7SK RNA: a 301-nucleotide sequence from Rostratula benghalensis. The base pairs follow the family's consensus structure, which is taken from published work. About the family: 7SK was discovered as an abundant small nuclear RNA in the mid-70s but a possible function has only recently been suggested. Two independent studies have found that 7SK RNA binds the CDK9/cyclin T complex (known as elongation factor P-TEFb). On this family, see Blencowe, Curr Biol 2002: "Transcription: surprising role for an elusive small nuclear RNA".

[Rfam]
RNA sequence: GAAUGUGAGAGUGAUCUGGCUGUGAUACCUGUCACCUUAUUGAUUAUCAGAGUUGAUUUGGCUGAUCUAGCUGGCUAGGCGGGUGUCCCCUUCCUCCCUCACCAUUCCGUGUGUGUCCCUCCCAAAGCUGAAGUCAGUCAAAGAGGACAGCCAAGAGAAACAUACUGGUCAUUGAUCAAGGGUAUACAGUAGCUGCAGUUCCCUACUAGAACCUCCAAACAUGCUCAAAGUCCAUUUGUAGGAAACUGUAGGGUAGUCAAGCUUCCAAGAGAGGCACUGCAUGGGGCAGUCUGCCAUUGUU
Numbered sequence: 001g002a003a004u005g006u007g008a009g010a011g012u013g014a015u016c017u018g019g020c021u022g023u024g025a026u027a028c029c030u031g032u033c034a035c036c037u038u039a040u041u042g043a044u045u046a047u048c049a050g051a052g053u054u055g056a057u058u059u060g061g062c063u064g065a066u067c068u069a070g071c072u073g074g075c076u077a078g079g080c081g082g083g084u085g086u087c088c089c090c091u092u093c094c095u096c097c098c099u100c101a102c103c104a105u106u107c108c109g110u111g112u113g114u115g116u117c118c119c120u121c122c123c124a125a126a127g128c129u130g131a132a133g134u135c136a137g138u139c140a141a142a143g144a145g146g147a148c149a150g151c152c153a154a155g156a157g158a159a160a161c162a163u164a165c166u167g168g169u170c171a172u173u174g175a176u177c178a179a180g181g182g183u184a185u186a187c188a189g190u191a192g193c194u195g196c197a198g199u200u201c202c203c204u205a206c207u208a209g210a211a212c213c214u215c216c217a218a219a220c221a222u223g224c225u226c227a228a229a230g231u232c233c234a235u236u237u238g239u240a241g242g243a244a245a246c247u248g249u250a251g252g253g254u255a256g257u258c259a260a261g262c263u264u265c266c267a268a269g270a271g272a273g274g275c276a277c278u279g280c281a282u283g284g285g286g287c288a289g290u291c292u293g294c295c296a297u298u299g300u301u
Stems, first nucleotide, its partner, number of pairs: 001108001003106001005102005011096001013093002018090002024087010035074002037070003042067004047061002120158002122137001125134001128133001138156002145152002192262003199255001201253006214243003219239003223235001268301002271297001273295003276290005